[Rfam]
Rfam assigns this 140-nucleotide sequence from endosymbiont of unidentified scaly snail isolate Monju to the family "RtT RNA".
Rfam describes the family as follows. This family represents a bacterial cis-regulatory element known as RtT RNA. The exact function of RtT is unknown although it is thought that it may be involved in changing the cellular response in relation to amino acid starvation.
The family's RNA type in Rfam is cis-regulatory element.
A search with the family's covariance model found it, with a score of 48 bits.
Rfam links the family to the GO term cellular response to amino acid starvation.
NCBI's taxonomy places the organism under Bacteria, Pseudomonadati, Pseudomonadota, Gammaproteobacteria.
The family's consensus secondary structure is taken from published work.
RNA sequence: UGCAUUAUCAGGGAGUGAUGGGGUGAGAAUCCUCGUCAGGGUUCGACAAGGCGCGUAGCGCCGCAGGACGCCGGAGCGAAGCGACGGCGCCCCGAAGGGGUGAGCGGCGUAGCCGCGAAUCAAUCCCUCCCUCUCCGCCA
Dot-bracket structure: ..............(.((.(((.(.........((.(....((((....(..........).......(((((...........)))))...))))..).))...................)..))))).).........